The family of this 202-nucleotide sequence from Pseudomonas mangrovi is "Pseudomonas sRNA P27". It scores 162 bits against the family's covariance model. By type it is a small RNA.
RNA sequence: CGGGUUUACUCCUGGAUGUUACCGUUUCGUCCAGCCGGAGCCGGACGGCGUUUUGGUGUCUGAUUCGGUAGGAAUCGGGAGCACCAUCUGCGUAGGUUAAGGAAUCGCUUCCUCGGUUUAAGGCUCUCACCACCUACGGUCUUGGACAGCCCCCGCCAGGCAGGGACCCCAAUCUUGCCAACCGGCAGCCCGCAGGCUGCCG
Numbered sequence: 001c002g003g004g005u006u007u008a009c010u011c012c013u014g015g016a017u018g019u020u021a022c023c024g025u026u027u028c029g030u031c032c033a034g035c036c037g038g039a040g041c042c043g044g045a046c047g048g049c050g051u052u053u054u055g056g057u058g059u060c061u062g063a064u065u066c067g068g069u070a071g072g073a074a075u076c077g078g079g080a081g082c083a084c085c086a087u088c089u090g091c092g093u094a095g096g097u098u099a100a101g102g103a104a105u106c107g108c109u110u111c112c113u114c115g116g117u118u119u120a121a122g123g124c125u126c127u128c129a130c131c132a133c134c135u136a137c138g139g140u141c142u143u144g145g146a147c148a149g150c151c152c153c154c155g156c157c158a159g160g161c162a163g164g165g166a167c168c169c170c171a172a173u174c175u176u177g178c179c180a181a182c183c184g185g186c187a188g189c190c191c192g193c194a195g196g197c198u199g200c201c202g
Base pairs, nucleotide, nucleotide: 002169003168004167005166006165007164011160012159013158014157023050024049028047029046030045031044032043034041035040054086055085056084057083058082059081060078061077062076063075064074065073066072090156091155092154095151096150097149098148116147117146118145119144120143121142122141123140124139125138184201185200186199187198188197189196